[Rfam]
RNA: mir-166 microRNA precursor family
Organism: Nelumbo nucifera
RNA sequence: GUUGAGGGGAAUGUUGUCUGGUUCGAGACCAUUCAUGUGAAAGAAGAUAAAAUCAGCAUCAGAUGGGUGAUUUCGGACCAGGCUUCAUUCCCCCCAAC
Numbered sequence: 001g002u003u004g005a006g007g008g009g010a011a012u013g014u015u016g017u018c019u020g021g022u023u024c025g026a027g028a029c030c031a032u033u034c035a036u037g038u039g040a041a042a043g044a045a046g047a048u049a050a051a052a053u054c055a056g057c058a059u060c061a062g063a064u065g066g067g068u069g070a071u072u073u074c075g076g077a078c079c080a081g082g083c084u085u086c087a088u089u090c091c092c093c094c095c096a097a098c
Base pairs, nucleotide, nucleotide: 001098002097003096004095006093007092008091009090010089011088012087013086016083017082018081019080020079021078024075025074026073